[Rfam]
RNA sequence: UUCUUAUCGCGAGAGGUGGAGGGACUGGCCCGAUGAAACCCGGCAACCGUUAAACAGCAAUCCUGUUUAAAAUGGUGCCAAUUCCUGCAAAGCGCAUGCUUUGGGAGAUGAGAG
Numbered sequence: 001u002u003c004u005u006a007u008c009g010c011g012a013g014a015g016g017u018g019g020a021g022g023g024a025c026u027g028g029c030c031c032g033a034u035g036a037a038a039c040c041c042g043g044c045a046a047c048c049g050u051u052a053a054a055c056a057g058c059a060a061u062c063c064u065g066u067u068u069a070a071a072a073u074g075g076u077g078c079c080a081a082u083u084c085c086u087g088c089a090a091a092g093c094g095c096a097u098g099c100u101u102u103g104g105g106a107g108a109u110g111a112g113a114g
Stems, first nucleotide, its partner, number of pairs: 001114008013041001015040003021031003025087001027085002042079004047075002050070007083106001088103006
Background: The record is a 114-nucleotide RNA from Fictibacillus enclensis, which matches "SAM riboswitch aptamer (S box leader)" in Rfam. A search with the family's covariance model found it, with a score of 89 bits.